[Rfam]
RNA sequence: GUUGAAGUUCCAUCUACAAAUGGAUAAAAUUUCUUUUUUAGUUUAGUAUAUAAAAGUAAAGGGGCAAUACUAGUUUCUUGAUCGAACAAGAAAUUUUUUAUUGCCCCUUU
Numbered sequence: 001g002u003u004g005a006a007g008u009u010c011c012a013u014c015u016a017c018a019a020a021u022g023g024a025u026a027a028a029a030u031u032u033c034u035u036u037u038u039u040a041g042u043u044u045a046g047u048a049u050a051u052a053a054a055a056g057u058a059a060a061g062g063g064g065c066a067a068u069a070c071u072a073g074u075u076u077c078u079u080g081a082u083c084g085a086a087c088a089a090g091a092a093a094u095u096u097u098u099u100a101u102u103g104c105c106c107c108u109u110u
Stems, first nucleotide, its partner, number of pairs: 009024005058110012072096001073094001075092005
The record is a 110-nucleotide RNA from Silene latifolia, which matches "Plastid-psbA-1 3UTR RNA" in Rfam. By type it is a cis-regulatory element. From the family's description: Plastid psbA-1 is a non-coding RNA (ncRNA) present in plastids. It was identified in inverted repeat sequences in the 3 prime untranslate region (3UTR) of photosystem II quinone-binding protein (psbA). The literature on the family includes a 2023 paper in Plant Commun by Richter et al., "Retrograde signaling in plants: A critical review focusing on the GUN pathway and beyond".